RNA sequence: GGUGUCGAGAGGCGUUGCAACGGGCCCCGUCGUAGGCGGCCCGCCACGCUCGACGGAUCUCCAAGGGCGCCUUCCAUCA
Numbered sequence: 001g002g003u004g005u006c007g008a009g010a011g012g013c014g015u016u017g018c019a020a021c022g023g024g025c026c027c028c029g030u031c032g033u034a035g036g037c038g039g040c041c042c043g044c045c046a047c048g049c050u051c052g053a054c055g056g057a058u059c060u061c062c063a064a065g066g067g068c069g070c071c072u073u074c075c076a077u078c079a
Stems, first nucleotide, its partner, number of pairs: 003055006021043006
RNA: SAH (S-adenosyl-L-homocysteine) riboswitch aptamer